[Rfam]
RNA sequence: GCGGAUAAAAGUCCGCUGGGAUGUAGCCGCAGAGGCUGAACCAUAAA
Numbered sequence: 001g002c003g004g005a006u007a008a009a010a011g012u013c014c015g016c017u018g019g020g021a022u023g024u025a026g027c028c029g030c031a032g033a034g035g036c037u038g039a040a041c042c043a044u045a046a047a
Stems, first nucleotide, its partner, number of pairs: 001016005017043003025037004
eL15-Euryarchaeota ribosomal protein leader: a 47-nucleotide RNA sequence. A reference for the family is Eckert and Weinberg (2020), "Discovery of 20 novel ribosomal leader candidates in bacteria and archaea", BMC Microbiol. The family's consensus secondary structure is taken from published work. Rfam's curators put it in the seed alignment.